[Rfam]
Nucleotides: 174
Base pairs, nucleotide, nucleotide: 006169007168009166010165011160012159013097015155016154017153020149021148022147025145026144027143028142029141030140031139032138039115040114041113042112043111045075046074047073048072049071055066056065057064058063082106083105084104085103088100089099090098117133118132119131120130121129
Number, partner (000 for none) and nucleotide at each position: 001000g002000a003000a004000g005000c006169g007168c008000a009166u010165c011160g012159u013097u014000a015155g016154g017153c018000g019000a020149g021148g022147c023000u024000u025145c026144u027143g028142c029141g030140u031139g032138a033000a034000u035000a036000c037000a038000g039115g040114c041113c042112g043111c044000u045075g046074a047073u048072c049071u050000g051000a052000c053000g054000a055066c056065a057064u058063c059000g060000a061000g062000a063058g064057a065056u066055g067000c068000c069000c070000a071049a072048g073047g074046u075045u076000a077000g078000g079000a080000c081000a082106g083105a084104u085103c086000u087000u088100c089099c090098c091000g092000g093000a094000u095000u096000a097013a098090g099089g100088g101000g102000u103085g104084a105083u106082c107000c108000g109000a110000g111043g112042u113041g114040g115039c116000u117133u118132c119131c120130g121129g122000c123000g124000u125000c126000g127000g128000g129121c130120c131119g132118g133117a134000u135000a136000c137000g138032u139031u140030g141029c142028g143027c144026a145025g146000u147022g148021c149020u150000g151000a152000a153017g154016c155015u156000c157000u158000u159012a160011c161000g162000u163000g164000g165010g166009g167000c168007g169006c170000u171000u172000g173000a174000a
Source information:
The record is a 174-nucleotide RNA sequence from Citricoccus sp. SGAir0253, which matches "M-box riboswitch aptamer (ykoK leader)" in Rfam. A reference for the family is Barrick et al. (2004), "New RNA motifs suggest an expanded scope for riboswitches in bacterial genetic control", Proc Natl Acad Sci U S A. The match comes from Rfam's covariance-model search (135 bits).